[Rfam]
RNA sequence: GACUCUCUUAUGCACAACCUCCUCGUGGUGAGAGUCGGAAACGUUGGAAUUUUUCCAACGGCUGAUAGUGCAUAA
Numbered sequence: 001g002a003c004u005c006u007c008u009u010a011u012g013c014a015c016a017a018c019c020u021c022c023u024c025g026u027g028g029u030g031a032g033a034g035u036c037g038g039a040a041a042c043g044u045u046g047g048a049a050u051u052u053u054u055c056c057a058a059c060g061g062c063u064g065a066u067a068g069u070g071c072a073u074a075a
Stems, first nucleotide, its partner, number of pairs: 001036007017029003042060007